Shown here is a 126-nucleotide sequence from Sus scrofa, a member of the family "Small nucleolar RNA SNORA77". The family's RNA type in Rfam is H/ACA-box small nucleolar RNA. Taxonomically the source falls in Sus (Eukaryota, Eumetazoa, Vertebrata, Teleostomi). A reference for the family is Schattner et al. (2006), "A computational screen for mammalian pseudouridylation guide H/ACA RNAs", RNA. The base pairs follow the family's consensus structure, which was predicted with RNAalifold. Gene Ontology terms of the family: RNA processing and nucleolus.
[Rfam]
RNA sequence: GCAGACUCGCUCUGCUCCCGGCCGCAGCCCCGGGCGGGUGCUUUUUCUGUCUGCCACAGGAACAUCCCGGGGCGCUGUGACCACUUUGACCUGUCAAGGGCAAGGCAGCUGCCCCGGUACAUGGUG
Numbered sequence: 001g002c003a004g005a006c007u008c009g010c011u012c013u014g015c016u017c018c019c020g021g022c023c024g025c026a027g028c029c030c031c032g033g034g035c036g037g038g039u040g041c042u043u044u045u046u047c048u049g050u051c052u053g054c055c056a057c058a059g060g061a062a063c064a065u066c067c068c069g070g071g072g073c074g075c076u077g078u079g080a081c082c083a084c085u086u087u088g089a090c091c092u093g094u095c096a097a098g099g100g101c102a103a104g105g106c107a108g109c110u111g112c113c114c115c116g117g118u119a120c121a122u123g124g125u126g
Stems, first nucleotide, its partner, number of pairs: 001054006014041002017038004022033003067117007074109005084100003